[Rfam]
Rfam assigns this 88-nucleotide sequence from Pseudomonas mangrovi to the family "t44 RNA". By type it is a small RNA. The organism belongs to Pseudomonas, within Bacteria. This family consists of a number of bacterial RNA genes of between 135 and 170 bases in length. The t44 gene has been identified in several species of enteric bacteria but homologs have also been identified in Pseudomonas and Coxiella species. The t44 gene is found between the map and rpsB genes in all species in the full alignment apart from Shigella flexneri. The function of this RNA is unknown.
RNA sequence: UGCCCGCGAAGCUCAACCCACACACGUAUCGACACGUUCGUCCUGGGUGCCCGCAAGGGUUGGACGGCGGGAUGCGUGGAGGCCUAAC
Numbered sequence: 001u002g003c004c005c006g007c008g009a010a011g012c013u014c015a016a017c018c019c020a021c022a023c024a025c026g027u028a029u030c031g032a033c034a035c036g037u038u039c040g041u042c043c044u045g046g047g048u049g050c051c052c053g054c055a056a057g058g059g060u061u062g063g064a065c066g067g068c069g070g071g072a073u074g075c076g077u078g079g080a081g082g083c084c085u086a087a088c
Stems, first nucleotide, its partner, number of pairs: 023078008035069003039066005049060004